[Rfam]
Rfam assigns this 45-nucleotide RNA sequence from Weizmannia acidilactici to the family "Ribosomal protein L19 leader". About the family: This family is a putative r-protein leader autoregulatory structure found in B. subtilis and other low-GC Gram-positive bacteria. It is located in the 5' untranslated regions of mRNAs encoding ribosomal protein L19 (rplS). Rfam links the family to the GO term regulation of gene expression.
RNA sequence: ACGAUGUUCCGCUGCAAAAUGUUAAAAGGUUUGCAAGAGCAUCUG
Numbered sequence: 001a002c003g004a005u006g007u008u009c010c011g012c013u014g015c016a017a018a019a020u021g022u023u024a025a026a027a028g029g030u031u032u033g034c035a036a037g038a039g040c041a042u043c044u045g
Stems, first nucleotide, its partner, number of pairs: 003043007013035006
Dot-bracket structure: ..(((((((...((((((...........)))))).)))))))..